The record is a 103-nucleotide RNA, which matches "SAM-I/IV (S-adenosyl methionine) riboswitch aptamer" in Rfam. Its family is annotated with S-adenosylmethionine metabolic process and regulation of gene expression in the Gene Ontology. Rfam 15.1 lists 567 matches to the family in 508 species. It is one of the family's seed sequences. On this family, see Weinberg et al., RNA 2008: "The aptamer core of SAM-IV riboswitches mimics the ligand-binding site of SAM-I riboswitches".
RNA sequence: UAUAAUCAUUCAGAGAGGACUGACGUCCUGCCAACCUGCAUUUUCCGGCAAGGUGGUUACCUCAUUUGAGGGAUGAGACCGUAGGGUAACCAAAGGAUCAUUG
Dot-bracket structure: .....(((((....(.((((....)))))(((..(((((....[[[.)).))).)))..............))))).(((....))).......]]]......
Numbered sequence: 001u002a003u004a005a006u007c008a009u010u011c012a013g014a015g016a017g018g019a020c021u022g023a024c025g026u027c028c029u030g031c032c033a034a035c036c037u038g039c040a041u042u043u044u045c046c047g048g049c050a051a052g053g054u055g056g057u058u059a060c061c062u063c064a065u066u067u068g069a070g071g072g073a074u075g076a077g078a079c080c081g082u083a084g085g086g087u088a089a090c091c092a093a094a095g096g097a098u099c100a101u102u103g
Stems, first nucleotide, its partner, number of pairs: 006076005015029001017028004030057003035053003038049002044097003078087003